[Rfam]
RNA: mir-597 microRNA precursor family
RNA sequence: UACUUACUCUACAUGUGUGUCACUUGACGACCACUGUGAAGAGAGUAAAAUGUACAGUGGUUCUCUUGGGGCUCAAGCGUAACGUAGAGUGCUGGUC
Numbered sequence: 001u002a003c004u005u006a007c008u009c010u011a012c013a014u015g016u017g018u019g020u021c022a023c024u025u026g027a028c029g030a031c032c033a034c035u036g037u038g039a040a041g042a043g044a045g046u047a048a049a050a051u052g053u054a055c056a057g058u059g060g061u062u063c064u065c066u067u068g069g070g071g072c073u074c075a076a077g078c079g080u081a082a083c084g085u086a087g088a089g090u091g092c093u094g095g096u097c
Stems, first nucleotide, its partner, number of pairs: 002096003005091008014082001016079003019072003023068001026065002029062010